Annotation: The record is a 122-nucleotide sequence from Dialister sp. CAG:357, which matches "FMN riboswitch aptamer (RFN element)" in Rfam. It scores 111 bits against the family's covariance model. The family's consensus secondary structure is taken from published work. Lineage of the source: Bacteria > Bacillati > Bacillota > Veillonellaceae > Dialister. The RFN element is a highly conserved domain that is found frequently in the 5'-untranslated regions of prokaryotic mRNAs that encode for flavin mononucleotide (FMN) biosynthesis and transport proteins.

[Rfam]
RNA sequence: UAAUCUCUUCAGGGCGGGGUGGAAGUCCCCACCGGUGGUGACAGCCCACGAACCAAUUUCGCUUGGUAAGAUCUGGUGUGAAUCCAGAGCCGACGGUAUAGUCCGGAUGAAAGAAGAGUGGA
Number, nucleotide and partner (000 for none) at each position: 001u000002a000003a000004u000005c118006u117007c116008u115009u114010c113011a000012g000013g000014g000015c000016g000017g029018g028019g027020u000021g000022g000023a000024a000025g000026u000027c019028c018029c017030c000031a102032c101033c092034g091035g049036u048037g047038g046039u000040g000041a000042c000043a000044g090045c089046c038047c037048a036049c035050g000051a000052a067053c066054c065055a000056a000057u000058u000059u000060c000061g000062c000063u000064u000065g054066g053067u052068a000069a000070g000071a000072u088073c087074u086075g085076g084077u000078g000079u000080g000081a000082a000083u000084c076085c075086a074087g073088a072089g045090c044091c034092g033093a000094c105095g104096g103097u000098a000099u000100a000101g032102u031103c096104c095105g094106g000107a000108u000109g000110a000111a000112a000113g010114a009115a008116g007117a006118g005119u000120g000121g000122a000